[Rfam]
Record summary:
A member of the RNA family "Bacterial large subunit ribosomal RNA" from Arthrobacter sunyaminii, 267 nucleotides of a longer RNA. The family has 102 seed sequences and 51,934 matches in Rfam 15.1. Taxonomically the source falls in Arthrobacter (Bacteria, Actinomycetota, Actinomycetes, Micrococcales). The literature on the family includes a 2001 paper in Science by Yusupov et al., "Crystal structure of the ribosome at 5.5 A resolution". It scores 2778 bits against the family's covariance model. Pairs were carried over by alignment from the consensus structure, which is taken from published work.
RNA sequence: GGAAAUUUGAGAAGGGCUGUCCUUAGUACGAGAGGACCGGGACGGACGAACCUCUGGUGUGUCAGUUGUACUGCCAAGUGCACCGCUGAUUAGCUACGUUCGGAUGGGAUAACCGCUGAAAGCAUCUAAGCGGGAAGCCCGCUUCGAGAUGAGAUUUCCAUACACCUUGUGUGUGAGAGGCCCCCAGCCAGACCACUGGGUUGAUAGGCCGGAUGUGGAAGCGGGGACUAAAGACCCGUGAAGCUGACCGGUACUAAUAGGCCGAUA
Numbered sequence: 001g002g003a004a005a006u007u008u009g010a011g012a013a014g015g016g017c018u019g020u021c022c023u024u025a026g027u028a029c030g031a032g033a034g035g036a037c038c039g040g041g042a043c044g045g046a047c048g049a050a051c052c053u054c055u056g057g058u059g060u061g062u063c064a065g066u067u068g069u070a071c072u073g074c075c076a077a078g079u080g081c082a083c084c085g086c087u088g089a090u091u092a093g094c095u096a097c098g099u100u101c102g103g104a105u106g107g108g109a110u111a112a113c114c115g116c117u118g119a120a121a122g123c124a125u126c127u128a129a130g131c132g133g134g135a136a137g138c139c140c141g142c143u144u145c146g147a148g149a150u151g152a153g154a155u156u157u158c159c160a161u162a163c164a165c166c167u168u169g170u171g172u173g174u175g176a177g178a179g180g181c182c183c184c185c186a187g188c189c190a191g192a193c194c195a196c197u198g199g200g201u202u203g204a205u206a207g208g209c210c211g212g213a214u215g216u217g218g219a220a221g222c223g224g225g226g227a228c229u230a231a232a233g234a235c236c237c238g239u240g241a242a243g244c245u246g247a248c249c250g251g252u253a254c255u256a257a258u259a260g261g262c263c264g265a266u267a
Stems, first nucleotide, its partner, number of pairs: 001159008011145004017045007047102005055096003062089005067082006106140003113133005162174003179263004183200005205256003208252005215244001221239005